[Rfam]
RNA sequence: UUGACAGAAGAGAGUGAGCAUUCAUAAUUUUUGCAUGAGAAAGAUCGUGCUUGAAUUUAUGUAUGCUCUCUCUCUAUCUGUCAG
Numbered sequence: 001u002u003g004a005c006a007g008a009a010g011a012g013a014g015u016g017a018g019c020a021u022u023c024a025u026a027a028u029u030u031u032u033g034c035a036u037g038a039g040a041a042a043g044a045u046c047g048u049g050c051u052u053g054a055a056u057u058u059a060u061g062u063a064u065g066c067u068c069u070c071u072c073u074c075u076a077u078c079u080g081u082c083a084g
Base pairs, nucleotide, nucleotide: 001084002083003082004081005080006079007078008077010074011073012072013071014070016068017067018066019065020064021063023061024060025059
Dot-bracket structure: ((((((((.(((((.((((((.(((.................................))).)))))).)))))..))))))))
Rfam assigns this 84-nucleotide RNA from Cynara cardunculus to the family "mir-156 microRNA precursor family".
Rfam's curators write: This family represents the plant microRNA (miRNA) precursor mir-156.
On this family, see Reinhart et al., Genes Dev 2002: "MicroRNAs in plants".
It scores 67 bits against the family's covariance model.
The organism belongs to Cynara cardunculus subsp. cardunculus, within Eukaryota.